[Rfam]
RNA sequence: GCAAGCCUGUGAUGAUAGAAAAGUUAUCCCUGUCUGAAAUGAUCAUGUGGAGACGUGGUAACCUGAGGCUUGU
Number, nucleotide and partner (000 for none) at each position: 001g073002c072003a071004a070005g069006c068007c067008u000009g000010u000011g000012a000013u000014g000015a000016u000017a000018g000019a000020a000021a000022a000023g000024u000025u000026a000027u000028c000029c000030c000031u000032g000033u000034c000035u000036g000037a000038a000039a000040u000041g000042a000043u000044c000045a000046u000047g000048u000049g000050g000051a000052g000053a000054c000055g000056u000057g000058g000059u000060a000061a000062c000063c000064u000065g000066a000067g007068g006069c005070u004071u003072g002073u001